[Rfam]
RNA sequence: GGUUUCGUAGCUCAGUCGGUAGAGCAACGGACUGAAAAUCCGUGUGUCGGCGGUUCGAUUCUGCCCGAAACCA
Numbered sequence: 001g002g003u004u005u006c007g008u009a010g011c012u013c014a015g016u017c018g019g020u021a022g023a024g025c026a027a028c029g030g031a032c033u034g035a036a037a038a039u040c041c042g043u044g045u046g047u048c049g050g051c052g053g054u055u056c057g058a059u060u061c062u063g064c065c066c067g068a069a070a071c072c073a
Stems, first nucleotide, its partner, number of pairs: 001072007010025004027043005049065005
This 73-nucleotide RNA sequence from Malacoplasma penetrans belongs to the Rfam family "tRNA".
A search with the family's covariance model found it, with a score of 71 bits.
Rfam describes the family as follows. Transfer RNA (tRNA) molecules are approximately 80 nucleotides in length.
A reference for the family is Hou (1993), "The tertiary structure of tRNA and the development of the genetic code", Trends Biochem Sci.